[Rfam]
RNA sequence: UUCUUAUCGUGAGAGGUGGAGGGACUGGCCCUUAGAAACCUCAGCAACCGGCUUGUUUUGCAUUUGCAAAGCGCCAAGGUGCUAAAUCCAGCAAGCGUUUUUUAUGCUUGGAAGAUAAGAA
Numbered sequence: 001u002u003c004u005u006a007u008c009g010u011g012a013g014a015g016g017u018g019g020a021g022g023g024a025c026u027g028g029c030c031c032u033u034a035g036a037a038a039c040c041u042c043a044g045c046a047a048c049c050g051g052c053u054u055g056u057u058u059u060g061c062a063u064u065u066g067c068a069a070a071g072c073g074c075c076a077a078g079g080u081g082c083u084a085a086a087u088c089c090a091g092c093a094a095g096c097g098u099u100u101u102u103u104a105u106g107c108u109u110g111g112a113a114g115a116u117a118a119g120a121a
Stems, first nucleotide, its partner, number of pairs: 001121008013042005021031003025091004043083004048079002050075003087113001092110006

Rfam assigns this 121-nucleotide RNA sequence from Bacillus subtilis to the family "SAM riboswitch aptamer (S box leader)". Taxonomically the source falls in Bacillus subtilis subsp. subtilis (Bacteria, Caryophanales, Bacillaceae, Bacillus). The literature on the family includes a 1998 paper in Mol Microbiol by Grundy and Henkin, "The S box regulon: a new global transcription termination control system for methionine and cysteine biosynthesis genes in gram-positive bacteria". The family's consensus secondary structure is taken from published work. Rfam's curators put it in the seed alignment.